[Rfam]
RNA: Drosophila rox2 ncRNA
Organism: Drosophila willistoni
Nucleotides: 061
Base pairs, nucleotide, nucleotide: 003059004058005057007055009053010052011051012050013049014048015047016046017045018044019043020042021041
Number, partner (000 for none) and nucleotide at each position: 001000a002000a003059a004058a005057g006000g007055c008000a009053u010052g011051u012050g013049a014048a015047a016046u017045g018044u019043u020042g021041c022000a023000a024000a025000a026000a027000a028000a029000a030000a031000a032000a033000a034000a035000a036000a037000a038000a039000g040000g041021g042020u043019a044018a045017c046016g047015u048014u049013u050012u051011a052010c053009g054000c055007g056000c057005c058004u059003u060000a061000a